[Rfam]
RNA sequence: UAGACGUACUAGGGGAGCAAUUUGCUGAGAAGAGAUAUCUGACCCUUUGAACCUGAUCUAGGUGAUACUAGCGUAGGGAAGUGCCAAUAUAUGAUG
Numbered sequence: 001u002a003g004a005c006g007u008a009c010u011a012g013g014g015g016a017g018c019a020a021u022u023u024g025c026u027g028a029g030a031a032g033a034g035a036u037a038u039c040u041g042a043c044c045c046u047u048u049g050a051a052c053c054u055g056a057u058c059u060a061g062g063u064g065a066u067a068c069u070a071g072c073g074u075a076g077g078g079a080a081g082u083g084c085c086a087a088u089a090u091a092u093g094a095u096g
Stems, first nucleotide, its partner, number of pairs: 006084005011046004016040001017025003032039002052077004058071004
This 96-nucleotide sequence from Dolosigranulum pigrum belongs to the Rfam family "TPP riboswitch aptamer (THI element)". The organism belongs to Dolosigranulum pigrum, within Bacteria. Pairs were carried over by alignment from the consensus structure, which is taken from published work. About the family: Vitamin B(1) in its active form thiamin pyrophosphate (TPP) is an essential coenzyme that is synthesised by coupling of pyrimidine and thiazole moieties in bacteria. The previously detected thiamin-regulatory element, thi box was extended, resulting in a new, highly conserved RNA secondary structure, the THI element, which is widely distributed in eubacteria and also occurs in some archaea. Analysis of operon structures identified a large number of new candidate thiamin-regulated genes, mostly transporters, in various prokaryotic organisms. The THI element is a riboswitch that directly binds to TPP to regulate gene expression through a variety of mechanisms in archaea, bacteria and eukaryotes. through a variety of mechanisms in archaea, bacteria and eukaryotes. Tandem TPP riboswitches have been reported where both TPP riboswitches respond independently to TPP. The structure of TPP riboswitch has been reported for Escherichia coli and Arabidopsis thaliana.